[Rfam]
RNA sequence: UGUCGCUGCCCUCCUUGGGCGUUUCCUCCCUAGACUUGGGCCGUUCGCCUCGUGCGGACGGCCCUUUUUUCUUGGUCUC
Numbered sequence: 001u002g003u004c005g006c007u008g009c010c011c012u013c014c015u016u017g018g019g020c021g022u023u024u025c026c027u028c029c030c031u032a033g034a035c036u037u038g039g040g041c042c043g044u045u046c047g048c049c050u051c052g053u054g055c056g057g058a059c060g061g062c063c064c065u066u067u068u069u070u071c072u073u074g075g076u077c078u079c
Stems, first nucleotide, its partner, number of pairs: 008020004038064011
Shown here is a 79-nucleotide RNA sequence from Hansschlegelia zhihuaiae, a member of the family "Makes More Granules Regulator RNA (mmgR)".